[Rfam]
RNA sequence: CAUCUUACGAGGCAGCAUUGGAUUUCAUUACUUUUUCUAAUACUGCCUGGUAAUGAUGAU
Numbered sequence: 001c002a003u004c005u006u007a008c009g010a011g012g013c014a015g016c017a018u019u020g021g022a023u024u025u026c027a028u029u030a031c032u033u034u035u036u037c038u039a040a041u042a043c044u045g046c047c048u049g050g051u052a053a054u055g056a057u058g059a060u
Base pairs, nucleotide, nucleotide: 001058002057003056004055005053006052007051008050010048011047012046013045014044015043017041018040019039020038021037022036